Rfam assigns this 68-nucleotide sequence from Kitasatospora acidiphila to the family "ASdes TB sRNA". Rfam 15.1 lists 1,192 matches to the family in 825 species. A search with the family's covariance model found it, with a score of 78 bits. It is annotated as a small RNA.
RNA sequence: AGGGCCACCGGGUCCACCGCCCGGGUGGCCAGCAGGUAGUCGCGGAUGGCGAUGCCGUGCCGCCCCUC
Number, nucleotide and partner (000 for none) at each position: 001a000002g000003g000004g063005c062006c000007a000008c059009c000010g000011g030012g029013u028014c000015c027016a026017c025018c024019g000020c000021c000022c000023g000024g018025g017026u016027g015028g013029c012030c011031a000032g000033c000034a000035g056036g055037u054038a053039g000040u052041c051042g050043c049044g000045g000046a000047u000048g000049g043050c042051g041052a040053u038054g037055c036056c035057g000058u000059g008060c000061c000062g005063c004064c000065c000066c000067u000068c000